This 53-nucleotide RNA sequence belongs to the Rfam family "leuA-Halobacteria RNA".
The sequence is in the family's curated seed alignment.
It is annotated as a cis-regulatory element.
[Rfam]
RNA sequence: CGGCACGGAGGAUAGACGAAGUCGCCUCACGGCGGCUGGACGCGAAAAUUCUC
Numbered sequence: 001c002g003g004c005a006c007g008g009a010g011g012a013u014a015g016a017c018g019a020a021g022u023c024g025c026c027u028c029a030c031g032g033c034g035g036c037u038g039g040a041c042g043c044g045a046a047a048a049u050u051c052u053c
Stems, first nucleotide, its partner, number of pairs: 020037007